[Rfam]
RNA sequence: GUGAGAUGAUGAAUAAGUUUAUCCAUUCUCUGAGUGUUGCUGGUCCCCUGUCUCUGCAGCACCAGUGUCUGUUCUAGGCCUGAGUGUCCCGCAGCUCCCAGGCACUGUGCUAGCAGUCCUGUGUUCUACUGGCUGCUGCUACUGGGGCUUGGUGAGCUGUUGCAGGAUAGGGGGUCUGGCAGAGGUAGAAUCUACCUCAGCAAAGAUGAGGGAUACAAUCUGAUCAC
Numbered sequence: 001g002u003g004a005g006a007u008g009a010u011g012a013a014u015a016a017g018u019u020u021a022u023c024c025a026u027u028c029u030c031u032g033a034g035u036g037u038u039g040c041u042g043g044u045c046c047c048c049u050g051u052c053u054c055u056g057c058a059g060c061a062c063c064a065g066u067g068u069c070u071g072u073u074c075u076a077g078g079c080c081u082g083a084g085u086g087u088c089c090c091g092c093a094g095c096u097c098c099c100a101g102g103c104a105c106u107g108u109g110c111u112a113g114c115a116g117u118c119c120u121g122u123g124u125u126c127u128a129c130u131g132g133c134u135g136c137u138g139c140u141a142c143u144g145g146g147g148c149u150u151g152g153u154g155a156g157c158u159g160u161u162g163c164a165g166g167a168u169a170g171g172g173g174g175u176c177u178g179g180c181a182g183a184g185g186u187a188g189a190a191u192c193u194a195c196c197u198c199a200g201c202a203a204a205g206a207u208g209a210g211g212g213a214u215a216c217a218a219u220c221u222g223a224u225c226a227c
Base pairs, nucleotide, nucleotide: 010226011225012224014222017219018218019217023212024211026210027209028208030205031204034201035200039180040179041178042177043175044174045173046172047171048170049169050168054166055165056163057162059088060086061085062084065080067079068078069077070076091160092159093158094157095156096155097154105146106144109139110138112137113136114135115134116133117132118131121129122128123127182198183197184196185195186194187193188192

Shown here is a 227-nucleotide RNA from Acipenser ruthenus, a member of the family "Small nucleolar RNA SNORD17". On this family, see Huttenhofer et al., EMBO J 2001: "RNomics: an experimental approach that identifies 201 candidates for novel, small, non-messenger RNAs in mouse". Taxonomically the source falls in Acipenser (Eukaryota, Chondrostei, Acipenseridae, Acipenserinae). The base pairs follow the family's consensus structure, which was predicted with RNAalifold. A search with the family's covariance model found it, with a score of 100 bits. The snoRNA HBI-43 belongs to the C/D family of snoRNAs, guiding 2'O-ribose methylation at position U3797 of the 28S rRNA. Pseudouridylation in position U3797 is predicted to be guided by the H/ACA snoRNA ACA48. Gene Ontology terms of the family: RNA processing and nucleolus.